[Rfam]
RNA sequence: UCUCCCGCUUCACCUCCCUGAGCGGGUGCCUUACCCCCCAGUAAGGCAUUUUCACCCCCGACUAUAUCCCCUGGUCGGGGGUUUUUGUU
Numbered sequence: 001u002c003u004c005c006c007g008c009u010u011c012a013c014c015u016c017c018c019u020g021a022g023c024g025g026g027u028g029c030c031u032u033a034c035c036c037c038c039c040a041g042u043a044a045g046g047c048a049u050u051u052u053c054a055c056c057c058c059c060g061a062c063u064a065u066a067u068c069c070c071c072u073g074g075u076c077g078g079g080g081g082u083u084u085u086u087g088u089u
Base pairs, nucleotide, nucleotide: 004026005025006024007023008022009021028047029046030045031044032043033042034041055081056080057079058078059077060076061075062074063073064072
Notes
Shown here is an 89-nucleotide RNA sequence from Thauera sinica, a member of the family "Burkholderia RNA 7 (anti-hemB)". Its family is annotated with bacterial biofilm matrix and protein binding in the Gene Ontology. This RNA motif was identified by computational search in b-proteobacteria Burkholderia. A search with the family's covariance model found it, with a score of 76 bits. A reference for the family is Weinberg et al. (2007), "Identification of 22 candidate structured RNAs in bacteria using the CMfinder comparative genomics pipeline", Nucleic Acids Res. The family's RNA type in Rfam is small RNA.